[Rfam]
RNA sequence: UAAAAGGGUGUCCGCCGUACACAGUGGCGCACGGCUUGCCGUGGGGGAUGGCUCUCAAGACAUACCCGGCACGUAAUCUUUAGCACGUGAGGGAUGUUCGCUGCUCAGGCACGGACGCCCUC
Numbered sequence: 001u002a003a004a005a006g007g008g009u010g011u012c013c014g015c016c017g018u019a020c021a022c023a024g025u026g027g028c029g030c031a032c033g034g035c036u037u038g039c040c041g042u043g044g045g046g047g048a049u050g051g052c053u054c055u056c057a058a059g060a061c062a063u064a065c066c067c068g069g070c071a072c073g074u075a076a077u078c079u080u081u082a083g084c085a086c087g088u089g090a091g092g093g094a095u096g097u098u099c100g101c102u103g104c105u106c107a108g109g110c111a112c113g114g115a116c117g118c119c120c121u122c
Base pairs, nucleotide, nucleotide: 008072009071010070011069012068013029014028015027016026017025030043031042032041033040034039044067045066046065048063049062050061091120092119093118096116097115098114099113100112102111103110104109
Rfam assigns this 122-nucleotide RNA from Chionoecetes opilio to the family "U11 spliceosomal RNA".
It scores 74 bits against the family's covariance model.
Rfam 15.1 lists 2,595 matches to the family in 1,202 species.
On this family, see Montzka and Steitz, Proc Natl Acad Sci U S A 1988: "Additional low-abundance human small nuclear ribonucleoproteins: U11, U12, etc".
Gene Ontology terms of the family: pre-mRNA 5'-splice site binding, mRNA 5'-splice site recognition and U11 snRNP.